Rfam assigns this 63-nucleotide sequence from Trypanosoma theileri to the family "Trypanosomatid snoRNA TB10Cs1H2". Pairs were carried over by alignment from the consensus structure, which was predicted with WAR. A reference for the family is Myslyuk et al. (2008), "Psiscan: a computational approach to identify H/ACA-like and AGA-like non-coding RNA in trypanosomatid genomes", BMC Bioinformatics. Rfam links the family to the GO terms nucleolus and RNA processing. By type it is an H/ACA-box small nucleolar RNA. The match comes from Rfam's covariance-model search (85 bits).

[Rfam]
RNA sequence: AGCACUCAUUUCAAGCCGCACGAGCAUGAACGUGUUGUUCUGCGGUCGGGUGACGUGCGAGAG
Numbered sequence: 001a002g003c004a005c006u007c008a009u010u011u012c013a014a015g016c017c018g019c020a021c022g023a024g025c026a027u028g029a030a031c032g033u034g035u036u037g038u039u040c041u042g043c044g045g046u047c048g049g050g051u052g053a054c055g056u057g058c059g060a061g062a063g
Base pairs, nucleotide, nucleotide: 002058003057004056005055006053007052008051009050015046016045017044018043019042020041022040023039024038025037026036